[Rfam]
Nucleotides: 225
Base pairs, nucleotide, nucleotide: 001207002206003205004204006202007201008200009199010198011197012196017066018065019064020063021062022061024059070189071188072187073186074185075184076183210225211224212223213222
Number, partner (000 for none) and nucleotide at each position: 001207c002206g003205c004204u005000u006202a007201u008200a009199a010198c011197u012196a013000g014000a015000c016000u017066u018065a019064g020063g021062c022061u023000u024059g025000g026000u027000u028000g029000a030000u031000u032000a033000u034000c035000u036000a037000g038000g039000g040000u041000u042000c043000u044000c045000c046000u047000u048000g049000g050000u051000g052000c053000a054000u055000u056000c057000u058000u059024c060000c061022g062021g063020c064019c065018u066017a067000g068000g069000c070189u071188a072187g073186u074185a075184u076183u077000a078000g079000u080000u081000c082000g083000c084000c085000c086000c087000g088000g089000g090000g091000g092000a093000a094000a095000a096000a097000g098000g099000c100000u101000u102000c103000g104000g105000g106000a107000a108000u109000g110000u111000g112000g113000c114000u115000c116000u117000c118000u119000c120000c121000g122000g123000g124000g125000a126000g127000u128000g129000u130000u131000a132000u133000a134000g135000c136000c137000c138000g139000u140000u141000g142000c143000g144000u145000a146000a147000u148000a149000c150000c151000c152000u153000a154000u155000g156000g157000c158000g159000g160000a161000c162000u163000a164000a165000g166000g167000u168000u169000c170000g171000c172000g173000u174000a175000u176000u177000c178000g179000c180000a181000a182000g183076g184075a185074u186073a187072c188071u189070g190000g191000c192000g193000u194000a195000a196012u197011g198010g199009u200008u201007a202006u203000u204004a205003g206002u207001g208000a209000c210225c211224u212223a213222u214000c215000u216000u217000a218000a219000a220000a221000c222213a223212u224211g225210g
This 225-nucleotide part of an RNA from Fusarium kuroshium belongs to the Rfam family "Eukaryotic large subunit ribosomal RNA". It scores 2815 bits against the family's covariance model.